[Rfam]
RNA sequence: CAGAGUUCUCAGGGCGGGGUGCAAUUCCCCACCGGCGGUGAUGACGAGCGAUCGUCGAGCCCGCGAGCGCCCGCUCGCACCGAUCGACGAUCGGUGCGGACGGGGUCAGCAGAUUCCGGUGUGAACCCGGAGCCGACGGUCACAGUCCGGAUGAGAGAGAACCCCC
Numbered sequence: 001c002a003g004a005g006u007u008c009u010c011a012g013g014g015c016g017g018g019g020u021g022c023a024a025u026u027c028c029c030c031a032c033c034g035g036c037g038g039u040g041a042u043g044a045c046g047a048g049c050g051a052u053c054g055u056c057g058a059g060c061c062c063g064c065g066a067g068c069g070c071c072c073g074c075u076c077g078c079a080c081c082g083a084u085c086g087a088c089g090a091u092c093g094g095u096g097c098g099g100a101c102g103g104g105g106u107c108a109g110c111a112g113a114u115u116c117c118g119g120u121g122u123g124a125a126c127c128c129g130g131a132g133c134c135g136a137c138g139g140u141c142a143c144a145g146u147c148c149g150g151a152u153g154a155g156a157g158a159g160a161a162c163c164c165c166c
Stems, first nucleotide, its partner, number of pairs: 003164001005162006017029003031146002033135002035064004059133002067110002115131005137149003